[Rfam]
RNA sequence: UAACUGCGCUUGAGAAAGUGCGCUGAACCGCCAGAAGUCAGCAGAGGCCAUAGUACUCAAGCGGUGCACCGCUUGGGGAAGGGC
Numbered sequence: 001u002a003a004c005u006g007c008g009c010u011u012g013a014g015a016a017a018g019u020g021c022g023c024u025g026a027a028c029c030g031c032c033a034g035a036a037g038u039c040a041g042c043a044g045a046g047g048c049c050a051u052a053g054u055a056c057u058c059a060a061g062c063g064g065u066g067c068a069c070c071g072c073u074u075g076g077g078g079a080a081g082g083g084c
Stems, first nucleotide, its partner, number of pairs: 001025002005022007038045002047084003056077006
RNA: Group II catalytic intron D1-D4-1